[Rfam]
The record is a 267-nucleotide RNA sequence from Caldanaerobacter subterraneus, which matches "Bacterial large signal recognition particle RNA" in Rfam. The literature on the family includes a 2002 paper in Nucleic Acids Res by Regalia et al., "Prediction of signal recognition particle RNA genes". The family's RNA type in Rfam is non-coding RNA gene. The source organism's lineage runs through Bacteria, Bacillati, Bacillota, Thermoanaerobacteraceae and Caldanaerobacter subterraneus subsp. tengcongensis. Rfam's curators put it in the seed alignment.
RNA sequence: CCGUACUAGAUGGGGAGGUAGCGGUGCCCUGUAGCCUGCAACCCGCUAUAGCAGGGUCGAAUUCCCAGGCUGAGGCCUGAUUUCUGUAAGGCCUGGCGCAAGUAAGUGGCGUUGAUACUUGAGUCCUGCGCAACGGAGAUUUGCGAACCCCGUCAGGUCCGGAAGGAAGCAGCGGUAAGCAAACACCUCCGUGUGCCGCAGGGGUGCUUGAGUGGAGCUAACUGCUUGCGUAACGCUUAUGGGGACAGGUCGAAGCUGGGUGUACGG
Numbered sequence: 001c002c003g004u005a006c007u008a009g010a011u012g013g014g015g016a017g018g019u020a021g022c023g024g025u026g027c028c029c030u031g032u033a034g035c036c037u038g039c040a041a042c043c044c045g046c047u048a049u050a051g052c053a054g055g056g057u058c059g060a061a062u063u064c065c066c067a068g069g070c071u072g073a074g075g076c077c078u079g080a081u082u083u084c085u086g087u088a089a090g091g092c093c094u095g096g097c098g099c100a101a102g103u104a105a106g107u108g109g110c111g112u113u114g115a116u117a118c119u120u121g122a123g124u125c126c127u128g129c130g131c132a133a134c135g136g137a138g139a140u141u142u143g144c145g146a147a148c149c150c151c152g153u154c155a156g157g158u159c160c161g162g163a164a165g166g167a168a169g170c171a172g173c174g175g176u177a178a179g180c181a182a183a184c185a186c187c188u189c190c191g192u193g194u195g196c197c198g199c200a201g202g203g204g205u206g207c208u209u210g211a212g213u214g215g216a217g218c219u220a221a222c223u224g225c226u227u228g229c230g231u232a233a234c235g236c237u238u239a240u241g242g243g244g245a246c247a248g249g250u251c252g253a254a255g256c257u258g259g260g261u262g263u264a265c266g267g
Stems, first nucleotide, its partner, number of pairs: 001267006009058003012030004017025001019023001035055005064260003068256001071253001074251005081245010094235002097230006105223002108219003124211001131193002134191005140183005150175004158167003